[Rfam]
RNA sequence: AUGAUGAAUACGGAAGAAUAAGAGUGUUUGACUCUUAUACCGAAGAAGCAAGUUGAUGUCUCUUACCCAGGAUAUCAGCGAAACUUUCAGGUUGGAGGACCGUAUUCGGACU
Numbered sequence: 001a002u003g004a005u006g007a008a009u010a011c012g013g014a015a016g017a018a019u020a021a022g023a024g025u026g027u028u029u030g031a032c033u034c035u036u037a038u039a040c041c042g043a044a045g046a047a048g049c050a051a052g053u054u055g056a057u058g059u060c061u062c063u064u065a066c067c068c069a070g071g072a073u074a075u076c077a078g079c080g081a082a083a084c085u086u087u088c089a090g091g092u093u094g095g096a097g098g099a100c101c102g103u104a105u106u107c108g109g110a111c112u
Stems, first nucleotide, its partner, number of pairs: 006107008019037004039092003042088002046086003052079010